[Rfam]
RNA sequence: UAAGAAUGAACAAAGGCUAAGAUCGCAACAUCCUGUUGCAACGCCUUUGUGACCUGCAUCGUGCAGG
Numbered sequence: 001u002a003a004g005a006a007u008g009a010a011c012a013a014a015g016g017c018u019a020a021g022a023u024c025g026c027a028a029c030a031u032c033c034u035g036u037u038g039c040a041a042c043g044c045c046u047u048u049g050u051g052a053c054c055u056g057c058a059u060c061g062u063g064c065a066g067g
Stems, first nucleotide, its partner, number of pairs: 011049007025039005053067005

Rfam assigns this 67-nucleotide RNA from Lederbergia citrea to the family "Bacillaceae-1 RNA". NCBI's taxonomy places the organism under Bacteria, Bacillati, Bacillota, Bacilli, Lederbergia.